[Rfam]
RNA: Glycine riboswitch aptamer
Organism: Sphingomonas lacunae
RNA sequence: GCUGACAGCGCGGGAGAGGGCAGGGGAUUCGCAAGCAUCCCACGCCGCCGAAGGAGCAACCGCCCCGGAAUCUCUCAGGCAAAAGGACCGCGUCCUGUCA
Numbered sequence: 001g002c003u004g005a006c007a008g009c010g011c012g013g014g015a016g017a018g019g020g021c022a023g024g025g026g027a028u029u030c031g032c033a034a035g036c037a038u039c040c041c042a043c044g045c046c047g048c049c050g051a052a053g054g055a056g057c058a059a060c061c062g063c064c065c066c067g068g069a070a071u072c073u074c075u076c077a078g079g080c081a082a083a084a085g086g087a088c089c090g091c092g093u094c095c096u097g098u099c100a
Stems, first nucleotide, its partner, number of pairs: 008093006020045002047080003050076002054074003060068002